[Rfam]
RNA: mir-166 microRNA precursor family
Organism: Arabidopsis lyrata
RNA sequence: GUUCAGGUGAAUGAUGCCUGGCUCGAGACCAUUCCAUCUCAUGAUCAUGAUGAUGAUAUAAUGAUGAUGAUGAUGUCGGACCAGGCUUCAUUCCCCUCAAC
Number, nucleotide and partner (000 for none) at each position: 001g101002u100003u099004c000005a097006g096007g095008u000009g093010a092011a091012u090013g089014a000015u000016g086017c085018c084019u083020g082021g081022c000023u000024c078025g077026a076027g000028a000029c000030c000031a000032u000033u000034c000035c000036a000037u000038c000039u000040c000041a000042u000043g000044a000045u000046c000047a000048u000049g000050a000051u000052g000053a000054u000055g000056a000057u000058a000059u000060a000061a000062u000063g000064a000065u000066g000067a000068u000069g000070a000071u000072g000073a000074u000075g000076u026077c025078g024079g000080a000081c021082c020083a019084g018085g017086c016087u000088u000089c013090a012091u011092u010093c009094c000095c007096c006097u005098c000099a003100a002101c001